RNA sequence: AGCUUGUCAAUGAUGUUUCUCUAAAAAAAAUAUGUCUGAACAUAUGAAUUUUAUAGUGAUUUCAACCUGUAACUGAGAUAAGCU
Numbered sequence: 001a002g003c004u005u006g007u008c009a010a011u012g013a014u015g016u017u018u019c020u021c022u023a024a025a026a027a028a029a030a031u032a033u034g035u036c037u038g039a040a041c042a043u044a045u046g047a048a049u050u051u052u053a054u055a056g057u058g059a060u061u062u063c064a065a066c067c068u069g070u071a072a073c074u075g076a077g078a079u080a081a082g083c084u
Stems, first nucleotide, its partner, number of pairs: 002083007

Description: This 84-nucleotide RNA from Sphenodon punctatus belongs to the Rfam family "Small nucleolar RNA SNORD72". Its family is annotated with RNA processing and nucleolus in the Gene Ontology. snoRNA HBII-240 belongs to the CD family of snoRNAs. It is the human orthologue of the mouse MBII-240 and is predicted to guide 2'O-ribose methylation of the large 28S rRNA at residue U4590.